[Rfam]
RNA sequence: GUCAUCGUGAGGUGGGGUCUGAAGAAAGCGUGGAGCAAAGCCGCGGCCCGAUGGACAAACACCGGAUAACGAGGCCUACCCGGCCGGACGAGCGAGCAAUUGAUCGCGAAGUCCAAGGUCAUCAAAGGUCGGGGUGGUAAAUUCGGCGGGCGUGCGGUGAAGGCGGUCGGU
Numbered sequence: 001g002u003c004a005u006c007g008u009g010a011g012g013u014g015g016g017g018u019c020u021g022a023a024g025a026a027a028g029c030g031u032g033g034a035g036c037a038a039a040g041c042c043g044c045g046g047c048c049c050g051a052u053g054g055a056c057a058a059a060c061a062c063c064g065g066a067u068a069a070c071g072a073g074g075c076c077u078a079c080c081c082g083g084c085c086g087g088a089c090g091a092g093c094g095a096g097c098a099a100u101u102g103a104u105c106g107c108g109a110a111g112u113c114c115a116a117g118g119u120c121a122u123c124a125a126a127g128g129u130c131g132g133g134g135u136g137g138u139a140a141a142u143u144c145g146g147c148g149g150g151c152g153u154g155c156g157g158u159g160a161a162g163g164c165g166g167u168c169g170g171u
Base pairs, nucleotide, nucleotide: 002015003014004013005012006011028171029170032167035164036163040158041157042156043155044154045153046151047150048149049148050147062146063145064144065143066142067141074138075137076136077134079133080132081131082130083129084128086114087113088112089111092107093106094105095104

The family of this 171-nucleotide sequence from Bradyrhizobium diazoefficiens is "Group II catalytic intron D1-D4-3". Rfam describes the family as follows. Group II introns are found in rRNA, tRNA and mRNA of organelles in fungi, plants and protists, and also in mRNA in bacteria. It is one of the family's seed sequences. Taxonomically the source falls in Bradyrhizobium diazoefficiens (Bacteria, Pseudomonadati, Alphaproteobacteria, Nitrobacteraceae).